A member of the RNA family "antisense RNA of dnaA mRNA" from Vibrio genomosp. F6, 81 nucleotides long. The literature on the family includes a 2013 paper in PLoS One by Dadzie et al., "Identification and characterization of a cis-encoded antisense RNA associated with the replication process of Salmonella enterica serovar Typhi". Pairs were carried over by alignment from the consensus structure, which was predicted with RNAfold. Taxonomically the source falls in Vibrio genomosp. F6 (Bacteria, Pseudomonadati, Vibrionales, Vibrio).
[Rfam]
RNA sequence: UUUUGCAUUCGGUUUGUUGUCGAUAAUGGCAUUACCGACGGCAUGCAAUAAGUGAGUCUUACCUAAACCGGUGCCACCAUA
Numbered sequence: 001u002u003u004u005g006c007a008u009u010c011g012g013u014u015u016g017u018u019g020u021c022g023a024u025a026a027u028g029g030c031a032u033u034a035c036c037g038a039c040g041g042c043a044u045g046c047a048a049u050a051a052g053u054g055a056g057u058c059u060u061a062c063c064u065a066a067a068c069c070g071g072u073g074c075c076a077c078c079a080u081a
Base pairs, nucleotide, nucleotide: 004043005042006041009038010037011036012035013034016032017031020029021028052077053076054075056074057073061072062071063070